[Rfam]
tRNA: an 87-nucleotide RNA sequence from Gemmobacter lutimaris. A search with the family's covariance model found it, with a score of 62 bits. The base pairs follow the family's consensus structure, which is taken from published work. It is annotated as a transfer RNA.
Nucleotides: 087
Base pairs, nucleotide, nucleotide: 001086002085003084004083005082006081007080010026011025012024028044029043030042031041032040063079064078065077066076067075
Number, partner (000 for none) and nucleotide at each position: 001086g002085g003084a004083a005082c006081a007080g008000u009000g010026g011025c012024c013000g014000a015000g016000u017000g018000g019000u020000c021000u022000a023000a024012g025011g026010c027000a028044a029043c030042c031041g032040a033000c034000u035000u036000g037000a038000a039000a040032u041031c042030g043029g044028u045000c046000g047000g048000g049000c050000c051000a052000g053000a054000g055000a056000u057000g058000g059000u060000c061000c062000c063079g064078u065077g066076g067075g068000u069000u070000c071000g072000a073000a074000u075067c076066c077065c078064a079063c080007c081006u082005g083004u084003u085002c086001c087000g